[Rfam]
RNA sequence: CACCAGGUUGAUUCUGCCUGACGUGGAUGCUAGUCUCAUAGAUUUAGCCAUGCAUGUGUAAGCGAAGCGAUUAGUGGAGCGGCGGACGGCUCAGUAACAGGCAAGUAUUUGAUCUCCAUAACCGGACAACCUCAGGAAACAGAGGGGAAAACGGAUUAAGAGCAUGUGAAGAACAUGUGAUGAUAACUCAUUAGAGUGAUGGAGAGUAAGAAGUCAGCCCAUCAGUUAAUAUGUAGGGUAAGGGCCUACUUAGACGAAGACGGGUACGGGGGAUUAGGGUUUGAUUCCGGAGAGGGAGCCUGAGAGAUGGCUACCAGGUCUAAGGAACGCAGCAGGCACGAAAAUUACCGAAGCCCACGAAGGGGCGGUAGUGAAGAGACGUAAAAACAAUGAUCAGUAAAUAAGAUCUAGGUAACUGGAGGACAAGUCUGGUGCCAGCACCAGCGGUAAUACCAGCUCCAGGAGUGUCUAUGAUGAUUGCUG
Dot-bracket structure: ...(((((.......))))).((((((((((.(((((.(((.....(((.(((..((....((...((.....))...)).))......(((.....(.(((.....((...(((((((..(((.....((((.(....).))))......)))............................................)))))))..))...))).)(((....(((..((.(((((.......))))).)))))......)))..((((((((....))))...))))))).((.(((..........))).)).(.((....)).)...)))))).).....(.(((....(((.....)))..)))).))..)))))...........((((.........)))).......((((((.......((((.....((....)).......)))))))))).))))))))))..........
Overview:
A member of the RNA family "Microsporidia small subunit ribosomal RNA" from Potaspora morhaphis, 483 nucleotides of a longer RNA. The family is grouped with related families in Rfam's "SSU clan". On this family, see Yusupov et al., Science 2001: "Crystal structure of the ribosome at 5.5 A resolution". Rfam 15.1 lists 1,035 matches to the family in 436 species. Its family is annotated with ribosome and structural constituent of ribosome in the Gene Ontology.